[Rfam]
RNA sequence: UGUUAAAAAUUUCAUUUAUUUGUGUUGUUCGAAACUAGUAUAAUUGACGAAAUAAUCCGAUAGUGACACAUGGCAUACCAUGUGUACCAAUUUUUAAUAAUAGAGAUGAAUGAUAUUUUUAACA
Numbered sequence: 001u002g003u004u005a006a007a008a009a010u011u012u013c014a015u016u017u018a019u020u021u022g023u024g025u026u027g028u029u030c031g032a033a034a035c036u037a038g039u040a041u042a043a044u045u046g047a048c049g050a051a052a053u054a055a056u057c058c059g060a061u062a063g064u065g066a067c068a069c070a071u072g073g074c075a076u077a078c079c080a081u082g083u084g085u086a087c088c089a090a091u092u093u094u095u096a097a098u099a100a101u102a103g104a105g106a107u108g109a110a111u112g113a114u115a116u117u118u119u120u121a122a123c124a
Stems, first nucleotide, its partner, number of pairs: 002123009012113005018107004023102004028097002031094003
Description:
Shown here is a 124-nucleotide sequence from Gossypium barbadense, a member of the family "MIR7502 microRNA precursor family". The match comes from Rfam's covariance-model search (71 bits). The source organism's lineage runs through Eukaryota, Streptophytina, Mesangiospermae, Malvoideae and Gossypium.